[Rfam]
RNA sequence: AAUGUAAAAAGGCAAACCGCUCGGAAACGGCGGGACGCAAAGCCAUCGGACCUCACUCCCGGCAAGGGACAGGUGGCCGGGUUGCACGU
Numbered sequence: 001a002a003u004g005u006a007a008a009a010a011g012g013c014a015a016a017c018c019g020c021u022c023g024g025a026a027a028c029g030g031c032g033g034g035a036c037g038c039a040a041a042g043c044c045a046u047c048g049g050a051c052c053u054c055a056c057u058c059c060c061g062g063c064a065a066g067g068g069a070c071a072g073g074u075g076g077c078c079g080g081g082u083u084g085c086a087c088g089u
Stems, first nucleotide, its partner, number of pairs: 012038002017033004022029002041083004047079003050074003057069004

This 89-nucleotide RNA from Zoogloea ramigera belongs to the Rfam family "c-di-GMP-I riboswitch aptamer". Rfam links the family to the GO term cyclic-di-GMP binding. The source organism's lineage runs through Bacteria, Pseudomonadati, Betaproteobacteria, Rhodocyclales and Zoogloea.